A member of the RNA family "COG3943 RNA", 110 nucleotides long. The base pairs follow the family's consensus structure, which is taken from published work. Rfam's curators put it in the seed alignment.

RNA sequence: CACGCUCCACACAGAUAAUUAAAUCUGAGCAUGUGGCCAUCCAGUCGUUAGAGGAUGUAACACCAGUAGUUAUUGUAGAUGAGGAAUCUAUGUUAGCUACAUUCAGGUGU
Numbered sequence: 001c002a003c004g005c006u007c008c009a010c011a012c013a014g015a016u017a018a019u020u021a022a023a024u025c026u027g028a029g030c031a032u033g034u035g036g037c038c039a040u041c042c043a044g045u046c047g048u049u050a051g052a053g054g055a056u057g058u059a060a061c062a063c064c065a066g067u068a069g070u071u072a073u074u075g076u077a078g079a080u081g082a083g084g085a086a087u088c089u090a091u092g093u094u095a096g097c098u099a100c101a102u103u104c105a106g107g108u109g110u
Stems, first nucleotide, its partner, number of pairs: 012027005038057005060110005066100007076090005